[Rfam]
RNA sequence: GUCAACGUCUGACGUUUCGGUCUAAUAAACCAUCUUCAGGACAUAUUCAUAUUUAUAUAUUAUAUUUAUGAAUAUGUCCUGAAGAUGGUUUAUUAGACCGAAACGUCAGACGUUGAC
Numbered sequence: 001g002u003c004a005a006c007g008u009c010u011g012a013c014g015u016u017u018c019g020g021u022c023u024a025a026u027a028a029a030c031c032a033u034c035u036u037c038a039g040g041a042c043a044u045a046u047u048c049a050u051a052u053u054u055a056u057a058u059a060u061u062a063u064a065u066u067u068a069u070g071a072a073u074a075u076g077u078c079c080u081g082a083a084g085a086u087g088g089u090u091u092a093u094u095a096g097a098c099c100g101a102a103a104c105g106u107c108a109g110a111c112g113u114u115g116a117c
Stems, first nucleotide, its partner, number of pairs: 001117016018100012031087002034084015
The family of this 117-nucleotide RNA from Acanthosepion pharaonis is "mir-2513 microRNA precursor family". Gene Ontology terms of the family: RISC complex and miRNA-mediated post-transcriptional gene silencing.